[Rfam]
RNA sequence: AUACCUUCUCGGCCUUUUGGCUAAGAUCAAGUGUAGUAUCUGUUCUAAUCAGUGUGAAAACUGAUUUCCAUACUUUGUAUGGUUUUUUUUUCACAUUCAUUUUUAUAGACGCCUGGGGUGCAGUUGGCUUGCCACUGACCUCAAGCCAGGUUUCCGAGGGCCCAGCACUCCUCCCUUGUGAAGCCUAACGUUU
Dot-bracket structure: ......(((.((((....)))).)))....................((((((........)))))).((((((...)))))).............................(.((((((.....(((....)))...)))))).)..((((((.((((((............))))))..)))))).......
Numbered sequence: 001a002u003a004c005c006u007u008c009u010c011g012g013c014c015u016u017u018u019g020g021c022u023a024a025g026a027u028c029a030a031g032u033g034u035a036g037u038a039u040c041u042g043u044u045c046u047a048a049u050c051a052g053u054g055u056g057a058a059a060a061c062u063g064a065u066u067u068c069c070a071u072a073c074u075u076u077g078u079a080u081g082g083u084u085u086u087u088u089u090u091u092c093a094c095a096u097u098c099a100u101u102u103u104u105a106u107a108g109a110c111g112c113c114u115g116g117g118g119u120g121c122a123g124u125u126g127g128c129u130u131g132c133c134a135c136u137g138a139c140c141u142c143a144a145g146c147c148a149g150g151u152u153u154c155c156g157a158g159g160g161c162c163c164a165g166c167a168c169u170c171c172u173c174c175c176u177u178g179u180g181a182a183g184c185c186u187a188a189c190g191u192u193u
Stems, first nucleotide, its partner, number of pairs: 007026003011022004047066006068082006112145001114143006125134003148186006155178006